[Rfam]
Nucleotides: 127
Base pairs, nucleotide, nucleotide: 003053004052005051006050007049014041015040016039017038018037019036020035021034022033023032079108080107081106082105084103085102086101087100
Number, partner (000 for none) and nucleotide at each position: 001000u002000a003053g004052c005051a006050g007049g008000c009000g010000a011000g012000u013000u014041a015040u016039g017038a018037u019036a020035u021034a022033g023032c024000u025000g026000u027000g028000c029000a030000g031000u032023g033022c034021u035020g036019u037018a038017u039016u040015a041014u042000c043000g044000u045000u046000c047000c048000c049007c050006c051005u052004g053003c054000u055000u056000a057000a058000a059000g060000a061000a062000a063000a064000a065000u066000g067000c068000u069000u070000c071000c072000u073000u074000c075000u076000a077000u078000c079108c080107c081106u082105g083000c084103c085102u086101g087100c088000u089000u090000u091000g092000u093000u094000c095000c096000c097000a098000c099000g100087g101086c102085a103084g104000g105082u106081a107080g108079g109000g110000a111000c112000g113000c114000u115000u116000g117000g118000u119000u120000u121000c122000a123000u124000a125000c126000a127000g
Shown here is a 127-nucleotide RNA sequence from Hemiprocne comata, a member of the family "Small nucleolar RNA SNORA63".
Rfam's curators write: E3 belongs to the H/ACA class of snoRNAs and is involved in the processing of eukaryotic pre-rRNA and has regions of complementarity to 18S rRNA. E3 is encoded in introns in the gene for protein synthesis initiation factor 4AII.
The family's consensus secondary structure was predicted with PFOLD.
Rfam links the family to the GO terms RNA processing and nucleolus.
A reference for the family is Mishra and Eliceiri (1997), "Three small nucleolar RNAs that are involved in ribosomal RNA precursor processing", Proc Natl Acad Sci U S A.